[Rfam]
RNA sequence: GGCUCAGUGAUUUUCUGCCUUUGUUGCAGUAUACGCUAUUCCGAUUCAUAAUCCUGAGCAGAGAUUUCAAUUUUGAUGAGAGCU
Numbered sequence: 001g002g003c004u005c006a007g008u009g010a011u012u013u014u015c016u017g018c019c020u021u022u023g024u025u026g027c028a029g030u031a032u033a034c035g036c037u038a039u040u041c042c043g044a045u046u047c048a049u050a051a052u053c054c055u056g057a058g059c060a061g062a063g064a065u066u067u068c069a070a071u072u073u074u075g076a077u078g079a080g081a082g083c084u
Stems, first nucleotide, its partner, number of pairs: 001084005
RNA: Small nucleolar RNA U54